RNA sequence: CACGUUCAUCGCCCUAAAAAGCGACGGAAGUAAACGAAAGUUGAAGGAACGCAUG
Numbered sequence: 001c002a003c004g005u006u007c008a009u010c011g012c013c014c015u016a017a018a019a020a021g022c023g024a025c026g027g028a029a030g031u032a033a034a035c036g037a038a039a040g041u042u043g044a045a046g047g048a049a050c051g052c053a054u055g
Stems, first nucleotide, its partner, number of pairs: 003051005009024004027052001033042003
Rfam assigns this 55-nucleotide sequence to the family "Glutamine riboswitch aptamer (glnA leader)". On this family, see Ames and Breaker, RNA Biol 2011: "Bacterial aptamers that selectively bind glutamine". The family's consensus secondary structure is taken from published work. Rfam links the family to the GO term glutamine binding.